[Rfam]
RNA sequence: UGGUUAUGAAGCAAUUGACUGUGUCGGCAUGCAGCCAGAUGCGGAGCCAGACCUUGGGUUAUGCGAUAACCUCAAACCGAAUAGGUUCUUCGGAGCUGAAAGAAAACGCUUAUC
Numbered sequence: 001u002g003g004u005u006a007u008g009a010a011g012c013a014a015u016u017g018a019c020u021g022u023g024u025c026g027g028c029a030u031g032c033a034g035c036c037a038g039a040u041g042c043g044g045a046g047c048c049a050g051a052c053c054u055u056g057g058g059u060u061a062u063g064c065g066a067u068a069a070c071c072u073c074a075a076a077c078c079g080a081a082u083a084g085g086u087u088c089u090u091c092g093g094a095g096c097u098g099a100a101a102g103a104a105a106a107c108g109c110u111u112a113u114c
Stems, first nucleotide, its partner, number of pairs: 001049004011042003015038003019034004024080004063109003084097004
Notes: Rfam assigns this 114-nucleotide sequence from Schaedlerella arabinosiphila to the family "drum RNA". Rfam's curators write: Firmicutes, Bacteroidetes (1 example), Proteobacteria (2 examples), Spirochaetes (2 examples). By type it is a small RNA. The match comes from Rfam's covariance-model search (97 bits). Taxonomically the source falls in Schaedlerella (Bacteria, Bacillota, Clostridia, Lachnospirales).